The record is a 132-nucleotide RNA sequence from Coregonus sp. 'balchen', which matches "Small nucleolar RNA SNORA44" in Rfam. Rfam classes the family as an H/ACA-box small nucleolar RNA. The match comes from Rfam's covariance-model search (63 bits). The family has 27 seed sequences and 1,056 matches in Rfam 15.1. The family is grouped with related families in Rfam's "SNORA44 clan". ACA44 is a member of the H/ACA class of snoRNA that guide the sites of modification of uridines to pseudouridines.

RNA sequence: CAGCAUGCUAUCCUAAGGACCCGGGCUUUGUCUGUAGCCUCUGGUUCUCCAAGUGCAUGCCAGAGAAAUGGGGAGUCUUUGACUGUCCUGGCCUCUCCUUGCCUGUGGUAGUCACUCUACUGUCCUACAGAU
Numbered sequence: 001c002a003g004c005a006u007g008c009u010a011u012c013c014u015a016a017g018g019a020c021c022c023g024g025g026c027u028u029u030g031u032c033u034g035u036a037g038c039c040u041c042u043g044g045u046u047c048u049c050c051a052a053g054u055g056c057a058u059g060c061c062a063g064a065g066a067a068a069u070g071g072g073g074a075g076u077c078u079u080u081g082a083c084u085g086u087c088c089u090g091g092c093c094u095c096u097c098c099u100u101g102c103c104u105g106u107g108g109u110a111g112u113c114a115c116u117c118u119a120c121u122g123u124c125c126u127a128c129a130g131a132u
Stems, first nucleotide, its partner, number of pairs: 013043001018039001020037001021034001023032002070125003074121002085112002088105001090103002